[Rfam]
RNA sequence: CAACUGCAAGUAAGAAUUGGAGGAAACUAAUCCCAAAAGCAAAUAUCAAUUUUACCAAUUUGGGUUUAGUUUCCUCCAAUAUCUUACUUCCAGUUU
Number, nucleotide and partner (000 for none) at each position: 001c000002a000003a000004c093005u092006g091007c000008a089009a000010g000011u086012a085013a084014g083015a000016a080017u079018u078019g077020g076021a075022g000023g073024a072025a071026a070027c069028u068029a067030a066031u000032c064033c063034c062035a061036a000037a000038a000039g000040c000041a000042a000043a000044u000045a000046u000047c000048a000049a000050u000051u000052u000053u000054a000055c000056c000057a000058a000059u000060u000061u035062g034063g033064g032065u000066u030067u029068a028069g027070u026071u025072u024073c023074c000075u021076c020077c019078a018079a017080u016081a000082u000083c014084u013085u012086a011087c000088u000089u008090c000091c006092a005093g004094u000095u000096u000
Annotation
MIR2275 microRNA precursor family: a 96-nucleotide sequence from Tripterygium wilfordii. The source organism's lineage runs through Eukaryota, Viridiplantae, Spermatophyta, eudicotyledons and Tripterygium. Rfam 15.1 lists 785 matches to the family in 111 species.